This 87-nucleotide RNA sequence from Betta splendens belongs to the Rfam family "mir-15 microRNA precursor family". The family's consensus secondary structure was predicted with RNAalifold. The family has 164 seed sequences and 2,045 matches in Rfam 15.1. Its Rfam clan is "mir-15 clan". Rfam's curators write: This family represents the related mir-15a and mir-15b sequences. In humans miR-15a and miR-16 are clustered within 0.5 kb at 13q14. It scores 64 bits against the family's covariance model.

RNA sequence: CCAGGGUGCGCUCUAGCAGCACAUCAUGUUUUGUAGAUAUUUACUGAAUCACUCCAAAUCAUGAUGUGCUGCCACUGUGAGCUCUGG
Numbered sequence: 001c002c003a004g005g006g007u008g009c010g011c012u013c014u015a016g017c018a019g020c021a022c023a024u025c026a027u028g029u030u031u032u033g034u035a036g037a038u039a040u041u042u043a044c045u046g047a048a049u050c051a052c053u054c055c056a057a058a059u060c061a062u063g064a065u066g067u068g069c070u071g072c073c074a075c076u077g078u079g080a081g082c083u084c085u086g087g
Stems, first nucleotide, its partner, number of pairs: 001087006014074001016072009026062003030058004035053002